[Rfam]
RNA sequence: GGAGGUGUUCACGGGAGCCCGAAGCACCGGGCUGAGAGGGUCCAACGAGACCGACCGUCGUACCUGAACUGGGUCAUGCCAGCGGAGGGAGCACGCGUCAUGAGCAA
Numbered sequence: 001g002g003a004g005g006u007g008u009u010c011a012c013g014g015g016a017g018c019c020c021g022a023a024g025c026a027c028c029g030g031g032c033u034g035a036g037a038g039g040g041u042c043c044a045a046c047g048a049g050a051c052c053g054a055c056c057g058u059c060g061u062a063c064c065u066g067a068a069c070u071g072g073g074u075c076a077u078g079c080c081a082g083c084g085g086a087g088g089g090a091g092c093a094c095g096c097g098u099c100a101u102g103a104g105c106a107a
Stems, first nucleotide, its partner, number of pairs: 006095003010091001011058004017032005039052004063088003069082004